[Rfam]
Notes: Shown here is a 74-nucleotide RNA sequence from Erpornis zantholeuca, a member of the family "mir-205 microRNA precursor family". A search with the family's covariance model found it, with a score of 61 bits. The base pairs follow the family's consensus structure, which was predicted with RNAalifold. Rfam links the family to the GO terms RISC complex and miRNA-mediated post-transcriptional gene silencing. The source organism's lineage runs through Eukaryota, Deuterostomia, Coelurosauria, Telluraves and Erpornis.
RNA sequence: UCCUGGUGCCCUUCAUUCCUCUGGAAUCUGUCGAUGCCCAGCCCAGAUUUCAGUGGAAUGAAGCCCCUCAGAGA
Numbered sequence: 001u002c003c004u005g006g007u008g009c010c011c012u013u014c015a016u017u018c019c020u021c022u023g024g025a026a027u028c029u030g031u032c033g034a035u036g037c038c039c040a041g042c043c044c045a046g047a048u049u050u051c052a053g054u055g056g057a058a059u060g061a062a063g064c065c066c067c068u069c070a071g072a073g074a
Stems, first nucleotide, its partner, number of pairs: 011063006019055001021053001023051004028046003